RNA sequence: CAGGUUACAGAUCUUGUAGAAUUUGUCUAUCAGGUUUUCCUGUCUUCACUGGAACUCCCCA
Numbered sequence: 001c002a003g004g005u006u007a008c009a010g011a012u013c014u015u016g017u018a019g020a021a022u023u024u025g026u027c028u029a030u031c032a033g034g035u036u037u038u039c040c041u042g043u044c045u046u047c048a049c050u051g052g053a054a055c056u057c058c059c060c061a
Base pairs, nucleotide, nucleotide: 033058034057037054038053039052040051042049043048
RNA: U7 small nuclear RNA
Organism: Colobus angolensis